[Rfam]
RNA sequence: UAGUGAGUAAGUCCCGUUCGAACCUAUGAUGCCUGUGUUUUCAGGAUGGGAGAAGUAGAGCGGGGAUCACGG
Numbered sequence: 001u002a003g004u005g006a007g008u009a010a011g012u013c014c015c016g017u018u019c020g021a022a023c024c025u026a027u028g029a030u031g032c033c034u035g036u037g038u039u040u041u042c043a044g045g046a047u048g049g050g051a052g053a054a055g056u057a058g059a060g061c062g063g064g065g066a067u068c069a070c071g072g
Stems, first nucleotide, its partner, number of pairs: 001072001003070004012065008032045004
RNA: DUF3800-X RNA